[Rfam]
RNA: Burkholderia RNA 7 (anti-hemB)
RNA sequence: UCUCUCGUUUCUCCUCCCUGAGCGAGUUGUCUUAACCCUUCCUACUGUUAAGACACUUUAUGCCCUUGGCUUCCCCCUUUUAGCCAAGGGCAUUUUUUU
Numbered sequence: 001u002c003u004c005u006c007g008u009u010u011c012u013c014c015u016c017c018c019u020g021a022g023c024g025a026g027u028u029g030u031c032u033u034a035a036c037c038c039u040u041c042c043u044a045c046u047g048u049u050a051a052g053a054c055a056c057u058u059u060a061u062g063c064c065c066u067u068g069g070c071u072u073c074c075c076c077c078u079u080u081u082a083g084c085c086a087a088g089g090g091c092a093u094u095u096u097u098u099u
Base pairs, nucleotide, nucleotide: 004026005025006024007023008022009021029054030053031052032051033050034049035048062091063090064089065088066087067086068085069084070083071082